Shown here is a 140-nucleotide RNA from Ceratodon purpureus, a member of the family "Small nucleolar RNA snoR2/U65". Gene Ontology terms of the family: nucleolus and RNA processing. For this family Rfam cites "Localization and processing from a polycistronic precursor of novel snoRNAs in maize" (Shaw et al., J Cell Sci, 1998).
RNA sequence: GCCAACCUGCCACGAAGGGGGUAGCAUUUGCGUUAACCCCACAUUCGACCAGGGUUAGGUGGAGAUCAUUUUUUCACUUCUCGAUAGGAAGCCAUGUGCAGUUCAGUUGCAUGAUGGUGCCAUUUAGGGUGAUAACAUUU
Dot-bracket structure: .((...(((....(...(.(((.((....))....))).)...)....).))))...................(((((........((...((((((((.........))))).)))..))......)))))........